[Rfam]
RNA sequence: AGUCCCAUUUUAGUACCUUUCAUUCGCAUCAUCAUGAAUGAACGGCUAUGCUAAUGGGAUAGAACAAACACUGUCAUGGUCUGAAGGUGUGGCUAGCUGACUCGGUCACUCACCAAAUAAAAUGACAGAACACUGCAAC
Numbered sequence: 001a002g003u004c005c006c007a008u009u010u011u012a013g014u015a016c017c018u019u020u021c022a023u024u025c026g027c028a029u030c031a032u033c034a035u036g037a038a039u040g041a042a043c044g045g046c047u048a049u050g051c052u053a054a055u056g057g058g059a060u061a062g063a064a065c066a067a068a069c070a071c072u073g074u075c076a077u078g079g080u081c082u083g084a085a086g087g088u089g090u091g092g093c094u095a096g097c098u099g100a101c102u103c104g105g106u107c108a109c110u111c112a113c114c115a116a117a118u119a120a121a122a123u124g125a126c127a128g129a130a131c132a133c134u135g136c137a138a139c
Stems, first nucleotide, its partner, number of pairs: 004058004016045002019042001073126004091114002
RNA: Small nucleolar RNA SNORA29
Organism: Anabas testudineus